[Rfam]
RNA sequence: CAAUUAAAACAGUAUCGCGCACAUCACUUAGAUGAACUCUAGAGAGUCGCAUAGAAG
Dot-bracket structure: ..................(..((((.....))))..)....................
RNA: Plastid-ndhJ 3UTR RNA